[Rfam]
RNA sequence: UUUGGGAAAUGAUGAGAUGUAAACAGUUUAUCAUAGGCUAAAUUGUCUUUGCUAUGCUGAAUGACUUUUGCACGUCAGUCUGAUCCCAAA
Numbered sequence: 001u002u003u004g005g006g007a008a009a010u011g012a013u014g015a016g017a018u019g020u021a022a023a024c025a026g027u028u029u030a031u032c033a034u035a036g037g038c039u040a041a042a043u044u045g046u047c048u049u050u051g052c053u054a055u056g057c058u059g060a061a062u063g064a065c066u067u068u069u070g071c072a073c074g075u076c077a078g079u080c081u082g083a084u085c086c087c088a089a090a
Base pairs, nucleotide, nucleotide: 001090002089003088004087005086006085007084
Record summary
Shown here is a 90-nucleotide RNA sequence from Vitis vinifera, a member of the family "Small nucleolar RNA Z122". Its family is annotated with nucleolus and RNA processing in the Gene Ontology. It scores 61 bits against the family's covariance model.